[Rfam]
RNA sequence: GGAUGUGAGGGCAAUCUGGCUGCAACAUCUGUCACUCCAUUGAUUGCCAGUGUUAAUUCGGCUGAUCUGGCUGGCUCAGCAGGUGUCCCCUUCCUCCCUCACCACACCACGUACAUCCCUCCUGAAGCAGCGCGCUUGAAGAGGACAACCUUCCCCAAUAGUGAUCUACCACUGCAGGUUAUACAGUAGCUGCACUCCUCUACUAGAACCUCCAAACAAGCUCAAGGUCCAUUUGUAGGAGAACGUAGGGUAGUCAAGCUUCCAAGACUGCAGACACAUCCAAGUGAGGCACUGCAUGGGGCAGUCAAUUUUUUUUU
Numbered sequence: 001g002g003a004u005g006u007g008a009g010g011g012c013a014a015u016c017u018g019g020c021u022g023c024a025a026c027a028u029c030u031g032u033c034a035c036u037c038c039a040u041u042g043a044u045u046g047c048c049a050g051u052g053u054u055a056a057u058u059c060g061g062c063u064g065a066u067c068u069g070g071c072u073g074g075c076u077c078a079g080c081a082g083g084u085g086u087c088c089c090c091u092u093c094c095u096c097c098c099u100c101a102c103c104a105c106a107c108c109a110c111g112u113a114c115a116u117c118c119c120u121c122c123u124g125a126a127g128c129a130g131c132g133c134g135c136u137u138g139a140a141g142a143g144g145a146c147a148a149c150c151u152u153c154c155c156c157a158a159u160a161g162u163g164a165u166c167u168a169c170c171a172c173u174g175c176a177g178g179u180u181a182u183a184c185a186g187u188a189g190c191u192g193c194a195c196u197c198c199u200c201u202a203c204u205a206g207a208a209c210c211u212c213c214a215a216a217c218a219a220g221c222u223c224a225a226g227g228u229c230c231a232u233u234u235g236u237a238g239g240a241g242a243a244c245g246u247a248g249g250g251u252a253g254u255c256a257a258g259c260u261u262c263c264a265a266g267a268c269u270g271c272a273g274a275c276a277c278a279u280c281c282a283a284g285u286g287a288g289g290c291a292c293u294g295c296a297u298g299g300g301g302c303a304g305u306c307a308a309u310u311u312u313u314u315u316u317u
Stems, first nucleotide, its partner, number of pairs: 001108002005102007014092001018090002025086008035074002037070003042067004046062003119163001121161001127135002136158003143154003189259003195253002198250006210241004216236005282317003286312004291305005
RNA: 7SK RNA